[Rfam]
RNA: ASpks TB sRNA
RNA sequence: CUUCAACGACCCGAGCCACAGCGGCAGUUCGGCGUCCCGGCCCUGUCCGUACGUCGCCAGGAGCGCCCGCGCCUC
Number, nucleotide and partner (000 for none) at each position: 001c000002u000003u000004c000005a000006a000007c000008g000009a000010c000011c000012c000013g000014a000015g025016c024017c023018a000019c000020a000021g000022c000023g017024g016025c015026a000027g000028u000029u000030c000031g000032g070033c069034g000035u000036c000037c000038c065039g064040g000041c000042c000043c060044u059045g058046u000047c056048c000049g054050u000051a000052c000053g000054u049055c000056g047057c000058c045059a044060g043061g000062a000063g000064c039065g038066c000067c000068c000069g033070c032071g000072c000073c000074u000075c000